[Rfam]
The family of this 101-nucleotide RNA from Krasilnikoviella flava is "SAM (S-adenosyl methionine) riboswitch aptamer".
RNA sequence: GGUCACGAGCCCCAGUGCGAAGCCCCGGCUGGCUGGGCAGCAACCCCCACGUCACGGCGGGGUGCUCCGGGAGAUGACCUGGCCGCCGGCCGGCCCGCGCA
Numbered sequence: 001g002g003u004c005a006c007g008a009g010c011c012c013c014a015g016u017g018c019g020a021a022g023c024c025c026c027g028g029c030u031g032g033c034u035g036g037g038c039a040g041c042a043a044c045c046c047c048c049a050c051g052u053c054a055c056g057g058c059g060g061g062g063u064g065c066u067c068c069g070g071g072a073g074a075u076g077a078c079c080u081g082g083c084c085g086c087c088g089g090c091c092g093g094c095c096c097g098c099g100c101a
Base pairs, nucleotide, nucleotide: 001079002078003077004076009038011037012036013035014034015033016032021030022029039066040065041064044062045061046060048057082100083099085098086097088095089094
The family is grouped with related families in Rfam's "SAM clan". Taxonomically the source falls in Krasilnikoviella (Bacteria, Actinomycetota, Actinomycetes, Promicromonosporaceae).